[Rfam]
RNA sequence: GGGGGGAGCGCUGGAUCUUGGGCUGUGUCCCCUGGUGCCCUGGGCUAUGGGGUCUGCGCCCGCCCCUGGAAUCGGGCUCCCGGGGCCAUGCAGCCCCCU
Numbered sequence: 001g002g003g004g005g006g007a008g009c010g011c012u013g014g015a016u017c018u019u020g021g022g023c024u025g026u027g028u029c030c031c032c033u034g035g036u037g038c039c040c041u042g043g044g045c046u047a048u049g050g051g052g053u054c055u056g057c058g059c060c061c062g063c064c065c066c067u068g069g070a071a072u073c074g075g076g077c078u079c080c081c082g083g084g085g086c087c088a089u090g091c092a093g094c095c096c097c098c099u
Stems, first nucleotide, its partner, number of pairs: 001099006010091002012088003017083002020080003024076001026074002028070003031062001034060005042054001044053003
RNA: mir-8799 microRNA precursor family